A member of the RNA family "BsrG" from Tumebacillus algifaecis, 290 nucleotides long.
The family has 6 seed sequences and 614 matches in Rfam 15.1.
bsrE, bsrG and bsrH pair through intermolecular interactions with antisense sRNAs. They form type I toxin/antitoxin system that includes an mRNA encoding for a short, toxic peptide (bsrE, bsrG and bsrH) and an antitoxin that is comprised of an antisense RNA. bsrG encodes a 39-amino-acid toxin, and the 180 nucleotide antisense sRNA called SR4 acts as the antitoxin (they overlap by 123 nucleotides). SR4 interaction with the 3'UTR of bsrG RNA promotes bsrG degradation and inhibits its translation.
NCBI's taxonomy places the organism under Bacteria, Bacillati, Caryophanales, Alicyclobacillaceae, Tumebacillus.
Gene Ontology terms of the family: toxin activity and autolysis.
RNA sequence: GUUACAAAUAGGCUCCUCAAGGGUGAUCGGCUCAUCCCCUAUCGAAAGGGGGUGAGAGAAUGUCGACACAUGAAAUGAUUUCGCUCAUGCUCCAGUUUGGGUUGUUCCUCGUAGCAGCUUUGACUUUGGUAGUGACAAUCAUGAAACACAUGUUAGACAAUCAAAACAAAAAGAAAUAGAUCGCCCUCUGAGUUGGCGCUCAGGCGAUCUAUUCUUUGAAUCCCAUAUGAGCCGACACCCUUCGGGGUAUCAGUUGUGUAAACCGACCGUAGGUGUUGACAGCAUCUAUG
Numbered sequence: 001g002u003u004a005c006a007a008a009u010a011g012g013c014u015c016c017u018c019a020a021g022g023g024u025g026a027u028c029g030g031c032u033c034a035u036c037c038c039c040u041a042u043c044g045a046a047a048g049g050g051g052g053u054g055a056g057a058g059a060a061u062g063u064c065g066a067c068a069c070a071u072g073a074a075a076u077g078a079u080u081u082c083g084c085u086c087a088u089g090c091u092c093c094a095g096u097u098u099g100g101g102u103u104g105u106u107c108c109u110c111g112u113a114g115c116a117g118c119u120u121u122g123a124c125u126u127u128g129g130u131a132g133u134g135a136c137a138a139u140c141a142u143g144a145a146a147c148a149c150a151u152g153u154u155a156g157a158c159a160a161u162c163a164a165a166a167c168a169a170a171a172a173g174a175a176a177u178a179g180a181u182c183g184c185c186c187u188c189u190g191a192g193u194u195g196g197c198g199c200u201c202a203g204g205c206g207a208u209c210u211a212u213u214c215u216u217u218g219a220a221u222c223c224c225a226u227a228u229g230a231g232c233c234g235a236c237a238c239c240c241u242u243c244g245g246g247g248u249a250u251c252a253g254u255u256g257u258g259u260a261a262a263c264c265g266a267c268c269g270u271a272g273g274u275g276u277u278g279a280c281a282g283c284a285u286c287u288a289u290g
Base pairs, nucleotide, nucleotide: 001257002256004254005253008250009235011233012232013231014230016192017191018190019189020187021186022185023184025181027179032055033054034053036051037050038049039048040047062158063157064156065154066153067152068151076089077088099149101147102146202216203215204214237248238247239246268290269289270288271287272286273285274284275283276282277281